[Rfam]
The family of this 105-nucleotide RNA from Colobus angolensis is "Mitochondrial DNA control region secondary structure A". The base pairs follow the family's consensus structure, which is taken from published work. Rfam classes the family as an antisense RNA. The literature on the family includes a 2008 paper in Mol Biol Evol by Pereira et al., "Evidence for variable selective pressures at a large secondary structure of the human mitochondrial DNA control region".
RNA sequence: GUAUUCUAUGGGGUACAAGCUUUAAAUGCAACUUAAGUACUAAUUUAUUUUAUCAGACCCUUAUGCAAAUCAUGCAUUACUGCUAGCCAACAUGAAUAUUAUAUA
Numbered sequence: 001g002u003a004u005u006c007u008a009u010g011g012g013g014u015a016c017a018a019g020c021u022u023u024a025a026a027u028g029c030a031a032c033u034u035a036a037g038u039a040c041u042a043a044u045u046u047a048u049u050u051u052a053u054c055a056g057a058c059c060c061u062u063a064u065g066c067a068a069a070u071c072a073u074g075c076a077u078u079a080c081u082g083c084u085a086g087c088c089a090a091c092a093u094g095a096a097u098a099u100u101a102u103a104u105a
Stems, first nucleotide, its partner, number of pairs: 005096001007094004012088002018081002022036004027031001037058002040056002043053001063077005